Record summary: This 196-nucleotide sequence from Clostridium sp. C105KSO13 belongs to the Rfam family "Group II catalytic intron D1-D4-5". The literature on the family includes a 2001 paper in EMBO J by Chu et al., "Control of branch-site choice by a group II intron". Rfam links the family to the GO term Group II intron splicing. It scores 151 bits against the family's covariance model. Rfam's curators write: Group II introns are found in rRNA, tRNA and mRNA of organelles in fungi, plants and protists, and also in mRNA in bacteria.

RNA sequence: GUGAACUGAUAAUUUGAUAAGUGGAAUGAUAGGGUAACGCCUUGAAACGCUUACACUUGAUGGGCAUGCAUUUUCUGUAAAGGAAUUUGUGUGAAGCCCCGUGACAAAGGCUGAGAGUAACCGUAAUAGCUUGCCAAAAGCUAUCGAAAACGGUCCAGAGGUGGACUGUGUUGCCUAUAGGUCGAGUGUCUAUAAA
Number, nucleotide and partner (000 for none) at each position: 001g000002u000003g000004a000005a000006c000007u000008g000009a000010u000011a000012a000013u000014u000015u000016g000017a000018u053019a052020a051021g050022u049023g048024g000025a000026a000027u000028g000029a000030u000031a043032g042033g041034g040035u000036a000037a000038c000039g000040c034041c033042u032043u031044g000045a000046a000047a000048c023049g022050c021051u020052u019053a018054c188055a187056c186057u185058u000059g000060a000061u101062g100063g099064g098065c093066a092067u091068g090069c089070a088071u000072u000073u085074u084075c083076u082077g000078u000079a000080a000081a000082g076083g075084a074085a073086u000087u000088u070089g069090u068091g067092u066093g065094a000095a000096g000097c000098c064099c063100c062101g061102u000103g000104a000105c000106a000107a000108a000109g183110g182111c181112u180113g000114a000115g000116a000117g174118u173119a172120a171121c170122c146123g145124u000125a000126a000127u000128a142129g141130c140131u139132u138133g000134c000135c000136a000137a000138a132139a131140g130141c129142u128143a000144u000145c123146g122147a000148a000149a000150a169151c168152g167153g166154u165155c164156c163157a162158g000159a000160g000161g000162u157163g156164g155165a154166c153167u152168g151169u150170g121171u120172u119173g118174c117175c000176u000177a000178u000179a000180g112181g111182u110183c109184g000185a057186g056187u055188g054189u000190c000191u000192a000193u000194a000195a000196a000